Overview:
S4-Clostridia ribosomal protein leader: a 71-nucleotide RNA from Blautia argi. The source organism's lineage runs through Bacteria, Bacillati, Lachnospirales, Lachnospiraceae and Blautia. The literature on the family includes a 2020 paper in BMC Microbiol by Eckert and Weinberg, "Discovery of 20 novel ribosomal leader candidates in bacteria and archaea". Clan: Ribosomal Protein S4 Leader clan.
RNA sequence: GAAAGGCUGCGUAAAAUUAUUUUUGCGGCUGGAUACAGAAGACCCCGUCAGUUUUUUGUAUCUCAAUUAGG
Numbered sequence: 001g002a003a004a005g006g007c008u009g010c011g012u013a014a015a016a017u018u019a020u021u022u023u024u025g026c027g028g029c030u031g032g033a034u035a036c037a038g039a040a041g042a043c044c045c046c047g048u049c050a051g052u053u054u055u056u057u058g059u060a061u062c063u064c065a066a067u068u069a070g071g
Stems, first nucleotide, its partner, number of pairs: 005030007031063013